[Rfam]
RNA sequence: CGGGCGGUGAACUCCCACUUGGCGCCGUUUCCUGCGAGGAGCUGGCCGCCGAAGGUGUCGCCGUCGCCGAGCCGGCCGAGGAUGGUGUCGUCGCCGUACUUUCCGGUGCCGACCUUCUCCACCUUGCCGUGCGCGAUCAUGUAGAUGUGGUCGGCCUUCUUGCCGGCGUGCACGAUGACCUGGCCGGGCUCGUACUCCUUCUGGACGAACUUCGCGGCCAGCGCGCCGAGGGCCGUCAGGUCGUCGAAGCCGCGCAGCAGCGGCAGUUCGGCGAGCUCGGCGGGGAUGACCUGGACCUUGGAGCCGUCCUUCAGGAAGGUCACCCGGCCGUCGCCGACCGUGUACGACAGCCGUCGGUUGACCCGGUAGGUGCCGCCCGGCACGUGCACCCAGGGAAGCUUGCGCAGCAGCCACCGCGAGCUGAUGCCCUGCAUCUGGGGUUCGGACUUGGUGGUGGUCGCGAGGUUCCUCGCGGCCGCCGUGCUGAGGCUCUGCUGGACGCGCUCCUG
Numbered sequence: 001c002g003g004g005c006g007g008u009g010a011a012c013u014c015c016c017a018c019u020u021g022g023c024g025c026c027g028u029u030u031c032c033u034g035c036g037a038g039g040a041g042c043u044g045g046c047c048g049c050c051g052a053a054g055g056u057g058u059c060g061c062c063g064u065c066g067c068c069g070a071g072c073c074g075g076c077c078g079a080g081g082a083u084g085g086u087g088u089c090g091u092c093g094c095c096g097u098a099c100u101u102u103c104c105g106g107u108g109c110c111g112a113c114c115u116u117c118u119c120c121a122c123c124u125u126g127c128c129g130u131g132c133g134c135g136a137u138c139a140u141g142u143a144g145a146u147g148u149g150g151u152c153g154g155c156c157u158u159c160u161u162g163c164c165g166g167c168g169u170g171c172a173c174g175a176u177g178a179c180c181u182g183g184c185c186g187g188g189c190u191c192g193u194a195c196u197c198c199u200u201c202u203g204g205a206c207g208a209a210c211u212u213c214g215c216g217g218c219c220a221g222c223g224c225g226c227c228g229a230g231g232g233c234c235g236u237c238a239g240g241u242c243g244u245c246g247a248a249g250c251c252g253c254g255c256a257g258c259a260g261c262g263g264c265a266g267u268u269c270g271g272c273g274a275g276c277u278c279g280g281c282g283g284g285g286a287u288g289a290c291c292u293g294g295a296c297c298u299u300g301g302a303g304c305c306g307u308c309c310u311u312c313a314g315g316a317a318g319g320u321c322a323c324c325c326g327g328c329c330g331u332c333g334c335c336g337a338c339c340g341u342g343u344a345c346g347a348c349a350g351c352c353g354u355c356g357g358u359u360g361a362c363c364c365g366g367u368a369g370g371u372g373c374c375g376c377c378c379g380g381c382a383c384g385u386g387c388a389c390c391c392a393g394g395g396a397a398g399c400u401u402g403c404g405c406a407g408c409a410g411c412c413a414c415c416g417c418g419a420g421c422u423g424a425u426g427c428c429c430u431g432c433a434u435c436u437g438g439g440g441u442u443c444g445g446a447c448u449u450g451g452u453g454g455u456g457g458u459c460g461c462g463a464g465g466u467u468c469c470u471c472g473c474g475g476c477c478g479c480c481g482u483g484c485u486g487a488g489g490c491u492c493u494g495c496u497g498g499a500c501g502c503g504c505u506c507c508u509g
Base pairs, nucleotide, nucleotide: 006390007389008388009387011385012384016380019327021325022324025319026318028316029315036312037311038310039309041307042306045305047303049301050300051299052298054233058229059228060227062225063224064223065111066110068108075103078101079100080099082097083096084095085094086093118221122217123216126213129210130209134204136202139199141197143196144195150191154189155188156187157186159183160178161177164174165173166171236294237293240290241289242288243287244286245285250282253279254278256277257276258275261270262269329342330341331340351379353377355375356374357373361371362370363369391431392430393429394428395427397425399423403418404417405416407415437476440473444469445468446467447465448464449463451461452460478507480503481502482501485498487496488495
A member of the RNA family "Saccharopolyspora sRNA 350" from Streptomyces purpureus, 509 nucleotides long.
It is annotated as an antisense RNA.
The family's consensus secondary structure was predicted with RNAfold.
The family has 2 seed sequences and 1,170 matches in Rfam 15.1.
For this family Rfam cites "Prediction and characterization of small non-coding RNAs related to secondary metabolites in Saccharopolyspora erythraea" (Liu et al., PLoS One, 2013).